[Rfam]
RNA: Nitrogen stress-induced RNA 1
Organism: Cuspidothrix issatschenkoi
RNA sequence: UGGUAGAUGCACCCUGGUUAAGCCCUGGAGAUUAAUUACUCGGGGGCAUUUUUUU
Dot-bracket structure: .(((......)))........(((((.(((........))).)))))........